[Rfam]
RNA: SAM riboswitch aptamer (S box leader)
Organism: Clostridium senegalense
RNA sequence: CUCUUAUCCAGAGUGGCGGAGGGACUGGCCCUACGAUGCCCAGCAACCAGCUUUCAUUAGGCAAGGUGCUAAUUCCAGCGGUUUUUACCGAAAGAUAAGAA
Number, nucleotide and partner (000 for none) at each position: 001c000002u100003c099004u098005u097006a096007u095008c094009c000010a000011g000012a000013g041014u000015g040016g039017c038018g000019g000020a000021g031022g030023g029024a000025c078026u077027g076028g075029c023030c022031c021032u000033a000034c000035g000036a000037u000038g017039c016040c015041c013042a070043g069044c068045a067046a000047c066048c065049a000050g062051c061052u060053u000054u000055c000056a000057u000058u000059a000060g052061g051062c050063a000064a000065g048066g047067u045068g044069c043070u042071a000072a000073u000074u093075c028076c027077a026078g025079c090080g089081g088082u087083u000084u000085u000086u000087a082088c081089c080090g079091a000092a000093a074094g008095a007096u006097a005098a004099g003100a002101a000